[Rfam]
RNA sequence: GUGGGCUAUGGGGAUAUGGCACCCAAAACAUAUGCGGGCAUGUUCGUGGGUGCUCUAUGUGCUUUGGCAGGUGUCUUGACCAUCGCACUGCCCGUGCCCGUCAUCGUGUCCAAC
Numbered sequence: 001g002u003g004g005g006c007u008a009u010g011g012g013g014a015u016a017u018g019g020c021a022c023c024c025a026a027a028a029c030a031u032a033u034g035c036g037g038g039c040a041u042g043u044u045c046g047u048g049g050g051u052g053c054u055c056u057a058u059g060u061g062c063u064u065u066g067g068c069a070g071g072u073g074u075c076u077u078g079a080c081c082a083u084c085g086c087a088c089u090g091c092c093c094g095u096g097c098c099c100g101u102c103a104u105c106g107u108g109u110c111c112a113a114c
Stems, first nucleotide, its partner, number of pairs: 001114002004111002007108005013102003018097001021095002037077002040074001049063003
Annotation:
The family of this 114-nucleotide sequence from Nephila pilipes is "Potassium channel RNA editing signal". About the family: This family represents a group of sequences related to the human potassium channel Kv1.1 hairpin element which directs the efficient modification of an adenosine to inosine by an adenosine deaminase acting on RNA (ADAR).